[Rfam]
RNA sequence: GGGCAGGAGGCGGUUAAGACUUGCAGUGAUGUUUAACUGCUCUCCACGUGACGUGAACAUCACAGCAAGUCUGUGCUGCCUCCU
Numbered sequence: 001g002g003g004c005a006g007g008a009g010g011c012g013g014u015u016a017a018g019a020c021u022u023g024c025a026g027u028g029a030u031g032u033u034u035a036a037c038u039g040c041u042c043u044c045c046a047c048g049u050g051a052c053g054u055g056a057a058c059a060u061c062a063c064a065g066c067a068a069g070u071c072u073g074u075g076c077u078g079c080c081u082c083c084u
Stems, first nucleotide, its partner, number of pairs: 017072007026063010

mir-499 microRNA precursor family: an 84-nucleotide RNA sequence from Dipodomys ordii.
The source organism's lineage runs through Eukaryota, Opisthokonta, Euteleostomi, Euarchontoglires and Dipodomys.
Its family is annotated with RISC complex and miRNA-mediated post-transcriptional gene silencing in the Gene Ontology.
For this family Rfam cites "MicroRNA transcriptome in the newborn mouse ovaries determined by massive parallel sequencing" (Ahn et al., Mol Hum Reprod, 2010).
It scores 84 bits against the family's covariance model.